[Rfam]
RNA sequence: GGGGGUGUAAAGGUUUCGACGGGGAACUGAAAAUCUGGGUAGCACCGGGUCGGGGCAGGUGGCCGACCUUAAUAAACCUGCACGGCAUUAAUUGCCGACAAUUAUAACACUCCUGUAGCCUUAGCGGCUUAACAGGCGUCCCCAAUGAAGAUGCCGGUGGUACAACGGGGGCGUCAUUUACUACCGGAUAGGGAAGCGCGACGCCCGUAGCGCAACCCGAAACUCAACGGGAUCGUCGUCUGACUGCCUUGUUCAUUGCGCAGGUAGACGGUUAAAUUGAGCAAUGUACUAACGGUGUAGAAUCUCAGAUGCUAGGUUUUUCGGACGUGGGUUCGAUUCCCACCACCUCCACCA
Dot-bracket structure: (((((((............(((((((((....(((((((...((((([[[[[..((((((...]]]]].......))))))................................(((((((.....))))..)))..(((((((..((.(....[[[[[[.).))..)))))))........]]]]]]...(((..((((....[[[[..))))..))).........]]]]...((((((((.(.((...[[.[.[...)).).))))))))..........]..].]]...)))))......)))))))....)))))))))...(((((.......))))))))))))....
This 354-nucleotide RNA from Pelobacter propionicus belongs to the Rfam family "transfer-messenger RNA". On this family, see Williams and Bartel, RNA 1996: "Phylogenetic analysis of tmRNA secondary structure". The family's consensus secondary structure is taken from published work. From the family's description: Bacterial tmRNA, also known as 10Sa RNA or SsrA, is named for its dual tRNA and mRNA-like properties. Its role is to liberate the mRNA from a stalled ribosome. To accomplish this part of the tmRNA is used as a reading frame that ends in a translation stop signal. The organism belongs to Pelobacter propionicus, within Bacteria.